[Rfam]
RNA: Group II catalytic intron D1-D4-3
RNA sequence: UCCCGUACGUACGGGAUGAAGUAAGCCAGACUGCGGCGUCUGUACUGAUGAACAAGAACUGCAUACAGAGGCUAUUAGGUCGGAUGAGGUGACACAGCACACCAAAGUCCAAACCUUCCGCUAGGGAGGAAGUACCGAAAUAGUAGAUAUGGCAGAGGACAAAUCGAGAGAUUUGGGU
Number, nucleotide and partner (000 for none) at each position: 001u016002c015003c014004c013005g012006u011007a000008c000009g000010u000011a006012c005013g004014g003015g002016a001017u000018g000019a000020a000021g000022u000023a000024a000025g178026c177027c176028a000029g174030a000031c000032u000033g000034c170035g000036g000037c000038g164039u163040c000041u161042g160043u157044a000045c155046u154047g153048a000049u000050g000051a000052a000053c000054a000055a000056g000057a000058a000059c152060u151061g150062c000063a148064u147065a000066c000067a000068g000069a000070g000071g144072c143073u142074a000075u139076u138077a000078g136079g135080u134081c000082g110083g109084a108085u107086g000087a000088g103089g102090u101091g100092a000093c000094a000095c000096a000097g000098c000099a000100c091101a090102c089103c088104a000105a000106a000107g085108u084109c083110c082111a000112a000113a000114c000115c000116u000117u000118c000119c000120g000121c000122u000123a000124g000125g000126g000127a000128g000129g000130a000131a000132g000133u000134a080135c079136c078137g000138a076139a075140a000141u000142a073143g072144u071145a000146g000147a064148u063149a000150u061151g060152g059153c047154a046155g045156a000157g043158g000159a000160c042161a041162a000163a039164u038165c000166g000167a000168g000169a000170g034171a000172u000173u000174u029175g000176g027177g026178u025